[Rfam]
RNA sequence: AUCGCAAGUUCGAGGCCGUUAGCAGAAAUGCUCACAGCACGGUCCUAUCAGAUUCCAACGAAUCUGUGAAUUCUGCU
Numbered sequence: 001a002u003c004g005c006a007a008g009u010u011c012g013a014g015g016c017c018g019u020u021a022g023c024a025g026a027a028a029u030g031c032u033c034a035c036a037g038c039a040c041g042g043u044c045c046u047a048u049c050a051g052a053u054u055c056c057a058a059c060g061a062a063u064c065u066g067u068g069a070a071u072u073c074u075g076c077u
Stems, first nucleotide, its partner, number of pairs: 014044005021077007029039002049066007